[Rfam]
RNA sequence: GGAUGUGGCUCUGGAGAAUCUCAUGAAUGAGUGCCGAAGGUGCAAGGCGCGGGAAACCGCGUUAAUCUCUCAGGCAAAAGGACAGAGUUUAAGUU
Numbered sequence: 001g002g003a004u005g006u007g008g009c010u011c012u013g014g015a016g017a018a019u020c021u022c023a024u025g026a027a028u029g030a031g032u033g034c035c036g037a038a039g040g041u042g043c044a045a046g047g048c049g050c051g052g053g054a055a056a057c058c059g060c061g062u063u064a065a066u067c068u069c070u071c072a073g074g075c076a077a078a079a080g081g082a083c084a085g086a087g088u089u090u091a092a093g094u095u
Base pairs, nucleotide, nucleotide: 007089008088009087010086011085012084013083020031021030022029023028033075034074035073036071037070040069042067046062